[Rfam]
RNA sequence: UUAAACCAAAAUUGAUUUAUGUUUGGAUACAUUUAGUAAAAGUGAUUCUUACAAAUUCAUGUUGUUUGGAUAG
Numbered sequence: 001u002u003a004a005a006c007c008a009a010a011a012u013u014g015a016u017u018u019a020u021g022u023u024u025g026g027a028u029a030c031a032u033u034u035a036g037u038a039a040a041a042g043u044g045a046u047u048c049u050u051a052c053a054a055a056u057u058c059a060u061g062u063u064g065u066u067u068g069g070a071u072a073g
Stems, first nucleotide, its partner, number of pairs: 011060002014057005021052002025048004030044005
Record summary: This 73-nucleotide sequence from Trifolium pratense belongs to the Rfam family "MIR5272 microRNA precursor family". The family's consensus secondary structure was predicted with RNAalifold. Taxonomically the source falls in Trifolium (Eukaryota, Spermatophyta, Magnoliopsida, Fabaceae). Its family is annotated with RISC complex and miRNA-mediated post-transcriptional gene silencing in the Gene Ontology. The family has 6 seed sequences and 271 matches in Rfam 15.1.